Rfam assigns this 81-nucleotide sequence from Streptococcus minor to the family "Fluoride riboswitch aptamer (crcB RNA motif)". Gene Ontology terms of the family: response to fluoride and positive regulation of gene expression. Taxonomically the source falls in Streptococcus (Bacteria, Bacillati, Bacilli, Streptococcaceae). Pairs were carried over by alignment from the consensus structure, which is taken from published work. The match comes from Rfam's covariance-model search (36 bits).
RNA sequence: AUCUAUCAAGGGAAUGAGGCACUCCCUAAAUUCAGAAAAAGAAUUUAAACCGCGUUUUGCGCUGAUGGCUUCUAUGAUGCC
Numbered sequence: 001a002u003c004u005a006u007c008a009a010g011g012g013a014a015u016g017a018g019g020c021a022c023u024c025c026c027u028a029a030a031u032u033c034a035g036a037a038a039a040a041g042a043a044u045u046u047a048a049a050c051c052g053c054g055u056u057u058u059g060c061g062c063u064g065a066u067g068g069c070u071u072c073u074a075u076g077a078u079g080c081c
Base pairs, nucleotide, nucleotide: 010026011025012024013023016072017071018070019069020068052062053061054060